Shown here is a 151-nucleotide RNA sequence from Phascolarctos cinereus, a member of the family "Small nucleolar RNA SNORA12". Rfam's curators write: U108 belongs to the H/ACA family of snoRNAs. The sequence is predicted to guide the pseudouridylation of the U372 residue in the 28S rRNA subunit.
RNA sequence: CAGUGUGGUAGUUUUCUUUCUGGCCAGUUUGUUAAGUGUCAAAUAGGCCUGACUCUGCCACAUAGAUAACACAGGAGCGAGCAGUCUUGGGCAUGGGCAGGCCAUGUCUGAGCCUCUCCCCACUUCAGAGAUUACUGUAGCUCCCACAUGC
Number, nucleotide and partner (000 for none) at each position: 001c000002a000003g000004u000005g061006u060007g059008g058009u057010a056011g055012u000013u000014u000015u000016c000017u000018u000019u000020c000021u000022g049023g048024c047025c000026a000027g044028u043029u042030u041031g040032u000033u000034a000035a000036g000037u000038g000039u000040c031041a030042a029043a028044u027045a000046g000047g024048c023049c022050u000051g000052a000053c000054u000055c011056u010057g009058c008059c007060a006061c005062a000063u000064a000065g000066a000067u000068a000069a000070c000071a000072c000073a000074g144075g143076a142077g141078c140079g000080a087081g086082c000083a000084g000085u000086c081087u080088u000089g000090g000091g000092c000093a000094u000095g000096g000097g000098c000099a000100g000101g000102c000103c000104a000105u000106g136107u000108c000109u000110g000111a000112g000113c000114c000115u000116c000117u000118c000119c000120c000121c000122a000123c000124u000125u000126c000127a000128g000129a000130g000131a000132u000133u000134a000135c000136u106137g000138u000139a000140g078141c077142u076143c075144c074145c000146a000147c000148a000149u000150g000151c000

A reference for the family is Gu et al. (2005), "A novel experimental approach for systematic identification of box H/ACA snoRNAs from eukaryotes", Nucleic Acids Res.
The organism belongs to Phascolarctos, within Eukaryota.
Rfam classes the family as an H/ACA-box small nucleolar RNA.